This 86-nucleotide RNA sequence from Microtus ochrogaster belongs to the Rfam family "mir-3473 microRNA precursor family". The base pairs follow the family's consensus structure, which was predicted with RNAalifold.
RNA sequence: ACCUCUGAGCCAUCUCUCCAGCCCCAAAAGUGAAAAUUUUAAAGUGAAAAGAAAUGGGGGAGGGGCUGGAGAGAUGGCUCAGUGGU
Numbered sequence: 001a002c003c004u005c006u007g008a009g010c011c012a013u014c015u016c017u018c019c020a021g022c023c024c025c026a027a028a029a030g031u032g033a034a035a036a037u038u039u040u041a042a043a044g045u046g047a048a049a050a051g052a053a054a055u056g057g058g059g060g061a062g063g064g065g066c067u068g069g070a071g072a073g074a075u076g077g078c079u080c081a082g083u084g085g086u
Base pairs, nucleotide, nucleotide: 002085003084005082006081007080008079009078010077011076012075013074014073015072016071017070018069019068020067021066022065023064024063

Rfam links the family to the GO terms RISC complex, cellular response to mechanical stimulus and miRNA-mediated post-transcriptional gene silencing.